This 171-nucleotide RNA sequence from Triticum urartu belongs to the Rfam family "MIR2118 microRNA precursor family". The base pairs follow the family's consensus structure, which was predicted with RNAalifold.
[Rfam]
RNA sequence: GCCCGUAAGAGGAAGAAUAGAGGGCCUUAGAGUAGUGGGAAUGGGAGCAUGGAGGAAAGCCUAACUUGCUUAAUUUUCACCUCUAGUAUUGGAGGUGAGAAUUUAGCAUGGUGUUUCCUAAUGCCUCCCAUUCCUAUUGUUCUAAAGCACUCCAUCCUCUUGCAUUUUUGG
Numbered sequence: 001g002c003c004c005g006u007a008a009g010a011g012g013a014a015g016a017a018u019a020g021a022g023g024g025c026c027u028u029a030g031a032g033u034a035g036u037g038g039g040a041a042u043g044g045g046a047g048c049a050u051g052g053a054g055g056a057a058a059g060c061c062u063a064a065c066u067u068g069c070u071u072a073a074u075u076u077u078c079a080c081c082u083c084u085a086g087u088a089u090u091g092g093a094g095g096u097g098a099g100a101a102u103u104u105a106g107c108a109u110g111g112u113g114u115u116u117c118c119u120a121a122u123g124c125c126u127c128c129c130a131u132u133c134c135u136a137u138u139g140u141u142c143u144a145a146a147g148c149a150c151u152c153c154a155u156c157c158u159c160u161u162g163c164a165u166u167u168u169u170g171g
Base pairs, nucleotide, nucleotide: 010161011160012159013158015156016155020152021151022150025147027145028144029143030142031141032140033139034138036136037135038134039133040132041131042130043129044128045127046126048123049122050121052119054118055117057116058115059114060113
Dot-bracket structure: .........((((.((...(((..(.((((((((.(((((((((((.(((.(.((.((((....................................................))))))).)))..))))))))))).)))))))).)..)))..)).))))..........